[Rfam]
RNA sequence: CGCAAAUGAUGAUAAAAUCAAGGCUUGUUUCUCAGAACAUUCGCAGUUGCCACGUAAGAGCUUUUGCCCAGCCAGGCUUGAGAGCUAAUGCUGUUUGAUCCUUGGAUGUCUGAUGCA
Numbered sequence: 001c002g003c004a005a006a007u008g009a010u011g012a013u014a015a016a017a018u019c020a021a022g023g024c025u026u027g028u029u030u031c032u033c034a035g036a037a038c039a040u041u042c043g044c045a046g047u048u049g050c051c052a053c054g055u056a057a058g059a060g061c062u063u064u065u066g067c068c069c070a071g072c073c074a075g076g077c078u079u080g081a082g083a084g085c086u087a088a089u090g091c092u093g094u095u096u097g098a099u100c101c102u103u104g105g106a107u108g109u110c111u112g113a114u115g116c117a
Stems, first nucleotide, its partner, number of pairs: 002116003060085006